Small nucleolar RNA SNORD59: a 73-nucleotide sequence from Poecilia formosa.
Its family is annotated with nucleolus and RNA processing in the Gene Ontology.
It scores 88 bits against the family's covariance model.
Pairs were carried over by alignment from the consensus structure, which was predicted with ILM.
A reference for the family is Galardi et al. (2002), "Purified box C/D snoRNPs are able to reproduce site-specific 2'-O-methylation of target RNA in vitro", Mol Cell Biol.
Lineage of the source: Eukaryota > Metazoa > Eumetazoa > Teleostei > Poecilia.
Rfam classes the family as a C/D-box small nucleolar RNA.
[Rfam]
RNA sequence: UCUUCAAUGAUGAUUAACAUAGUGACUUUCGUUCUUCUGAGCUUACUGAAGCCACAUCUAUGUUCUGAGAAGA
Numbered sequence: 001u002c003u004u005c006a007a008u009g010a011u012g013a014u015u016a017a018c019a020u021a022g023u024g025a026c027u028u029u030c031g032u033u034c035u036u037c038u039g040a041g042c043u044u045a046c047u048g049a050a051g052c053c054a055c056a057u058c059u060a061u062g063u064u065c066u067g068a069g070a071a072g073a
Base pairs, nucleotide, nucleotide: 001073002072003071005069